[Rfam]
RNA sequence: CGAGUUUCAUCAGAUGUUAAAUUUUUGGUGUGGUGAAUCCCCCUAUGCGGAGGGGCGACCAGUCACUUACAGUGAUCUGUAAAUGCAGCGCGGGCCAUGCCGACUGGGGCAUGCUCACCGGGAGGCACCCGGCACCACGCAGUACUACUAAGACAUUUGGUAGUGGGGUUGCCGUUUCGGCUUCUCCAGCUAU
Numbered sequence: 001c002g003a004g005u006u007u008c009a010u011c012a013g014a015u016g017u018u019a020a021a022u023u024u025u026u027g028g029u030g031u032g033g034u035g036a037a038u039c040c041c042c043c044u045a046u047g048c049g050g051a052g053g054g055g056c057g058a059c060c061a062g063u064c065a066c067u068u069a070c071a072g073u074g075a076u077c078u079g080u081a082a083a084u085g086c087a088g089c090g091c092g093g094g095c096c097a098u099g100c101c102g103a104c105u106g107g108g109g110c111a112u113g114c115u116c117a118c119c120g121g122g123a124g125g126c127a128c129c130c131g132g133c134a135c136c137a138c139g140c141a142g143u144a145c146u147a148c149u150a151a152g153a154c155a156u157u158u159g160g161u162a163g164u165g166g167g168g169u170u171g172c173c174g175u176u177u178c179g180g181c182u183u184c185u186c187c188a189g190c191u192a193u
Stems, first nucleotide, its partner, number of pairs: 015147002028140008040055005063081001085091002092116004098111002118132005165187004171181002